[Rfam]
RNA sequence: GCGGUCAUGGUGUAGUGGUAUCAUAAUCGCCUCCCACGCGAUUGACCCGGGUUCGAUUCCCGGUGGCCGCA
Numbered sequence: 001g002c003g004g005u006c007a008u009g010g011u012g013u014a015g016u017g018g019u020a021u022c023a024u025a026a027u028c029g030c031c032u033c034c035c036a037c038g039c040g041a042u043u044g045a046c047c048c049g050g051g052u053u054c055g056a057u058u059c060c061c062g063g064u065g066g067c068c069g070c071a
Stems, first nucleotide, its partner, number of pairs: 001070007010024003026042005047063005